[Rfam]
RNA sequence: AAAGCGGUAUCGUAAGUCCUGGAGCGGCUGGGUGUUCGUAGAACACCCCACUCUGCUGCAAGCGGUGGUUAUCGGCUCCCAGGCAGAGCCGCUAU
Numbered sequence: 001a002a003a004g005c006g007g008u009a010u011c012g013u014a015a016g017u018c019c020u021g022g023a024g025c026g027g028c029u030g031g032g033u034g035u036u037c038g039u040a041g042a043a044c045a046c047c048c049c050a051c052u053c054u055g056c057u058g059c060a061a062g063c064g065g066u067g068g069u070u071a072u073c074g075g076c077u078c079c080c081a082g083g084c085a086g087a088g089c090c091g092c093u094a095u
Base pairs, nucleotide, nucleotide: 001095003093004092005091006090007089010087011086018083019082020081021080022079026077027076028075033045034044035043036042037041053065054064055063056062057061
This 95-nucleotide RNA sequence belongs to the Rfam family "DUF3800-III RNA". The family's consensus secondary structure is taken from published work. The sequence is in the family's curated seed alignment.